Rfam assigns this 89-nucleotide sequence from Albula glossodonta to the family "Small nucleolar RNA SNORD70".
About the family: snoRNA HBII-234 belongs to the C/D family of snoRNAs. It is the human orthologue of the mouse MBII-234 and is predicted to guide 2'O-ribose methylation of the small 18S rRNA on position A512.
Taxonomically the source falls in Albula (Eukaryota, Metazoa, Bilateria, Teleostomi).
The family's RNA type in Rfam is C/D-box small nucleolar RNA.
A reference for the family is Huttenhofer et al. (2001), "RNomics: an experimental approach that identifies 201 candidates for novel, small, non-messenger RNAs in mouse", EMBO J.
Pairs were carried over by alignment from the consensus structure.
Rfam links the family to the GO terms nucleolus and RNA processing.

[Rfam]
RNA sequence: GAUGCUGUUGUCUAUGAUGUAUCUCUCUGUCUGACUCAACCAUGAAGUUAUUCAGCAGUAUUCGUCACUACCACUGAGACCACAGCGGG
Number, nucleotide and partner (000 for none) at each position: 001g000002a000003u087004g086005c085006u084007g083008u082009u000010g080011u079012c078013u000014a000015u000016g000017a000018u000019g000020u000021a000022u000023c000024u000025c000026u000027c000028u000029g000030u000031c000032u000033g000034a000035c000036u000037c000038a000039a000040c000041c000042a000043u000044g000045a000046a000047g000048u000049u000050a000051u000052u000053c000054a000055g000056c000057a000058g000059u000060a000061u000062u000063c000064g000065u000066c000067a000068c000069u000070a000071c000072c000073a000074c000075u000076g000077a000078g012079a011080c010081c000082a008083c007084a006085g005086c004087g003088g000089g000